[Rfam]
RNA sequence: CGACUUGGUCAAAUGAUCGCGGCUGCAGAAACGAAAGGCUGCAGGUGAGGAAAGUCCGGGCUUCAUAGGGCAGGGUGCCGGAUAACGUCCGGUGGAGGCGACUCCCAGGCUAGUGCAACAGAAAUAUACCGCCAGGUAACUGGUAAGGGUGGAAAGGCGAGGUAAGAGCUCACCGCUGUUUUGGUAACAAAGCAGGCUCUGUAAACCCCACUCGAAGCAAGACCGAACAGAAAACAAUGUGGCUGCCCGUCACGUUUUCGGGUAGGUUGCUUGAACCUGUUGGUAACAGCAGGUCUAGAUAGAUGAUCAUUCAACGACAUAACCCGGCUUAUCGACCGAGUCACUUU
Numbered sequence: 001c002g003a004c005u006u007g008g009u010c011a012a013a014u015g016a017u018c019g020c021g022g023c024u025g026c027a028g029a030a031a032c033g034a035a036a037g038g039c040u041g042c043a044g045g046u047g048a049g050g051a052a053a054g055u056c057c058g059g060g061c062u063u064c065a066u067a068g069g070g071c072a073g074g075g076u077g078c079c080g081g082a083u084a085a086c087g088u089c090c091g092g093u094g095g096a097g098g099c100g101a102c103u104c105c106c107a108g109g110c111u112a113g114u115g116c117a118a119c120a121g122a123a124a125u126a127u128a129c130c131g132c133c134a135g136g137u138a139a140c141u142g143g144u145a146a147g148g149g150u151g152g153a154a155a156g157g158c159g160a161g162g163u164a165a166g167a168g169c170u171c172a173c174c175g176c177u178g179u180u181u182u183g184g185u186a187a188c189a190a191a192g193c194a195g196g197c198u199c200u201g202u203a204a205a206c207c208c209c210a211c212u213c214g215a216a217g218c219a220a221g222a223c224c225g226a227a228c229a230g231a232a233a234a235c236a237a238u239g240u241g242g243c244u245g246c247c248c249g250u251c252a253c254g255u256u257u258u259c260g261g262g263u264a265g266g267u268u269g270c271u272u273g274a275a276c277c278u279g280u281u282g283g284u285a286a287c288a289g290c291a292g293g294u295c296u297a298g299a300u301a302g303a304u305g306a307u308c309a310u311u312c313a314a315c316g317a318c319a320u321a322a323c324c325c326g327g328c329u330u331a332u333c334g335a336c337c338g339a340g341u342c343a344c345u346u347u
Stems, first nucleotide, its partner, number of pairs: 002342009011332001012311007020047002023044006052330003056327005061217004068248004073213005078092005093107001094105004108208002113206002115202003129148002131144005156174002159171003175197001176195008221268004230259006239253005275294008

The record is a 347-nucleotide RNA from Clostridium sp. CAG:590, which matches "Bacterial RNase P class A" in Rfam. The base pairs follow the family's consensus structure, which is taken from published work. By type it is a ribozyme. A search with the family's covariance model found it, with a score of 317 bits. About the family: Ribonuclease P (RNase P) is a ubiquitous endoribonuclease, found in archaea, bacteria and eukarya as well as chloroplasts and mitochondria. The source organism's lineage runs through Bacteria, Bacillati, Clostridia, Eubacteriales and Clostridium.